[Rfam]
RNA sequence: AAUAAAAAACAGGGGAGCUCAAAUGCUGAGAGGAUGUAAAAAACAUCGACCCUAAAACCUGAUCCAGAUAAUGCUGGCGUAGGAAGUUAAAAAUAAAACUCU
Numbered sequence: 001a002a003u004a005a006a007a008a009a010c011a012g013g014g015g016a017g018c019u020c021a022a023a024u025g026c027u028g029a030g031a032g033g034a035u036g037u038a039a040a041a042a043a044c045a046u047c048g049a050c051c052c053u054a055a056a057a058c059c060u061g062a063u064c065c066a067g068a069u070a071a072u073g074c075u076g077g078c079g080u081a082g083g084a085a086g087u088u089a090a091a092a093a094u095a096a097a098a099c100u101c102u
Stems, first nucleotide, its partner, number of pairs: 008088003011053004017026002033047005058083004064077004
The family of this 102-nucleotide sequence from Oceanotoga teriensis is "TPP riboswitch aptamer (THI element)". The match comes from Rfam's covariance-model search (65 bits). Vitamin B(1) in its active form thiamin pyrophosphate (TPP) is an essential coenzyme that is synthesised by coupling of pyrimidine and thiazole moieties in bacteria.